ffh sRNA: a 52-nucleotide RNA. By type it is a small RNA. The literature on the family includes a 2009 paper in BMC Genomics by Meyer et al., "Identification of candidate structured RNAs in the marine organism 'Candidatus Pelagibacter ubique'".

[Rfam]
RNA sequence: UUUUGCGGGGAUCGCCGUCCACCAGCGCGUUGCGCCCGUGGGCGCCGUUGUG
Numbered sequence: 001u002u003u004u005g006c007g008g009g010g011a012u013c014g015c016c017g018u019c020c021a022c023c024a025g026c027g028c029g030u031u032g033c034g035c036c037c038g039u040g041g042g043c044g045c046c047g048u049u050g051u052g
Base pairs, nucleotide, nucleotide: 016044017043018042019041020040021039022038025035026034027033028032